[Rfam]
This 81-nucleotide RNA sequence from Dehalogenimonas alkenigignens belongs to the Rfam family "ZMP/ZTP riboswitch aptamer (pfl RNA motif)".
RNA sequence: AAUUCAUCGCGCGACUGGCGGAAGUGGAGUGCACCACACGGAGCGCGAUGUUAGUGACUGCCGACCGCCUGGGCUAUUUGG
Numbered sequence: 001a002a003u004u005c006a007u008c009g010c011g012c013g014a015c016u017g018g019c020g021g022a023a024g025u026g027g028a029g030u031g032c033a034c035c036a037c038a039c040g041g042a043g044c045g046c047g048a049u050g051u052u053a054g055u056g057a058c059u060g061c062c063g064a065c066c067g068c069c070u071g072g073g074c075u076a077u078u079u080g081g
Stems, first nucleotide, its partner, number of pairs: 005050008015040001017069005024037004060074003
Pairs were carried over by alignment from the consensus structure, which is taken from published work. The family has 185 seed sequences and 3,295 matches in Rfam 15.1.